Source information:
Rfam assigns this 196-nucleotide RNA from Digitaria exilis to the family "U2 spliceosomal RNA". About the family: U2 is a small nuclear RNA (snRNA) component of the spliceosome (involved in pre-mRNA splicing). The family's RNA type in Rfam is spliceosomal small nuclear RNA. Rfam 15.1 lists 71,512 matches to the family in 2,642 species.

RNA sequence: AUACCUUUCUCGGCUUUUUGGCUAAGAUCAAGUGUAGUAUCUGUUCUUAUCAGUUUGAUAUCUGAUACGUGAGGCACCGCAUCACAAUGAUAUUAAAUUUAUUUUUUUGGGAGAGAGUCUGUCAUGGUAGCUUGCUACUAGGGCUCUCAAGUGUCACCCUAGCGUUGCACUAUUGCUUGGGCUUGGCACACCCCAA
Numbered sequence: 001a002u003a004c005c006u007u008u009c010u011c012g013g014c015u016u017u018u019u020g021g022c023u024a025a026g027a028u029c030a031a032g033u034g035u036a037g038u039a040u041c042u043g044u045u046c047u048u049a050u051c052a053g054u055u056u057g058a059u060a061u062c063u064g065a066u067a068c069g070u071g072a073g074g075c076a077c078c079g080c081a082u083c084a085c086a087a088u089g090a091u092a093u094u095a096a097a098u099u100u101a102u103u104u105u106u107u108u109g110g111g112a113g114a115g116a117g118u119c120u121g122u123c124a125u126g127g128u129a130g131c132u133u134g135c136u137a138c139u140a141g142g143g144c145u146c147u148c149a150a151g152u153g154u155c156a157c158c159c160u161a162g163c164g165u166u167g168c169a170c171u172a173u174u175g176c177u178u179g180g181g182c183u184u185g186g187c188a189c190a191c192c193c194c195a196a
Base pairs, nucleotide, nucleotide: 008027009026010025012023013022014021015020048067049066050065051064052063053062069085070084071083072082074080075079113148114147115146116145117144118143119142120141127138128137129136130135151189152188153187154186155185156184158180159179161177162176163175